A member of the RNA family "Streptococcus sRNA SpF25" from Streptococcus sobrinus, 102 nucleotides long. The family has 20 seed sequences and 60 matches in Rfam 15.1. It is one of the family's seed sequences. It is annotated as a small RNA.
[Rfam]
RNA sequence: ACAUGAGGUAGCCUUUCUAUUAUUUUUUUGUCAACGAUAUUUUAUCAAGACUACCUAUGUAAAGCAAAAAGCAACGGCAUCAAAACCGUUGCUUUUUCGUUG
Numbered sequence: 001a002c003a004u005g006a007g008g009u010a011g012c013c014u015u016u017c018u019a020u021u022a023u024u025u026u027u028u029u030g031u032c033a034a035c036g037a038u039a040u041u042u043u044a045u046c047a048a049g050a051c052u053a054c055c056u057a058u059g060u061a062a063a064g065c066a067a068a069a070a071g072c073a074a075c076g077g078c079a080u081c082a083a084a085a086c087c088g089u090u091g092c093u094u095u096u097u098c099g100u101u102g
Stems, first nucleotide, its partner, number of pairs: 007055005016050003020047001022045002028039001031036001063101003067097004071092007
The source organism's lineage runs through Bacteria, Bacilli, Lactobacillales, Streptococcaceae and Streptococcus sobrinus.